[Rfam]
RNA sequence: AAGGAGUAAACCGAAAAUCCUGUAAAGAGUAGGUA
Numbered sequence: 001a002a003g004g005a006g007u008a009a010a011c012c013g014a015a016a017a018u019c020c021u022g023u024a025a026a027g028a029g030u031a032g033g034u035a
Base pairs, nucleotide, nucleotide: 002021003020004019005018010034011033012032
Dot-bracket structure: .((((....[[[.....))))..........]]].